[Rfam]
RNA sequence: UUGAUGAUAUUGGGAGAGAGCGAUGCCUAUCGCCGCCGAAGGAGAAAAUUCCAAAAAGACCAUUGGAAACAAACUCUCAGGUAAAAAGGACCAAUAUCGGACG
Numbered sequence: 001u002u003g004a005u006g007a008u009a010u011u012g013g014g015a016g017a018g019a020g021c022g023a024u025g026c027c028u029a030u031c032g033c034c035g036c037c038g039a040a041g042g043a044g045a046a047a048a049u050u051c052c053a054a055a056a057a058g059a060c061c062a063u064u065g066g067a068a069a070c071a072a073a074c075u076c077u078c079a080g081g082u083a084a085a086a087a088g089g090a091c092c093a094a095u096a097u098c099g100g101a102c103g
Stems, first nucleotide, its partner, number of pairs: 006098008020033004035082003038078002042076003049068006
Shown here is a 103-nucleotide RNA from Bacillus benzoevorans, a member of the family "Glycine riboswitch aptamer". Taxonomically the source falls in Bacillus (Bacteria, Bacillota, Caryophanales, Bacillaceae). For this family Rfam cites "A glycine-dependent riboswitch that uses cooperative binding to control gene expression" (Mandal et al., Science, 2004). Rfam describes the family as follows. This family represents the bacterial glycine riboswitch. Glycine riboswitches usually consist of two metabolite-binding aptamers domains with similar structures in tandem. The aptamers cooperatively bind glycine to regulate the expression of downstream genes. In Bacillus subtilis, this riboswitch is found upstream of the gcvT operon which controls glycine degradation.